RNA sequence: GCCGACGUAGCUCAGUUGGUAGAGCGUCGCAUUCGUAAUGCGCAGGUCGCCGGUUCAACUCCGGCCGUCGGCU
Numbered sequence: 001g002c003c004g005a006c007g008u009a010g011c012u013c014a015g016u017u018g019g020u021a022g023a024g025c026g027u028c029g030c031a032u033u034c035g036u037a038a039u040g041c042g043c044a045g046g047u048c049g050c051c052g053g054u055u056c057a058a059c060u061c062c063g064g065c066c067g068u069c070g071g072c073u
Base pairs, nucleotide, nucleotide: 001072002071003070004069005068006067007066010025011024012023013022028042029041030040031039049065050064051063052062053061
The record is a 73-nucleotide sequence from Stieleria marina, which matches "tRNA" in Rfam. Lineage of the source: Bacteria > Planctomycetota > Pirellulales > Pirellulaceae > Stieleria. It scores 70 bits against the family's covariance model. By type it is a transfer RNA.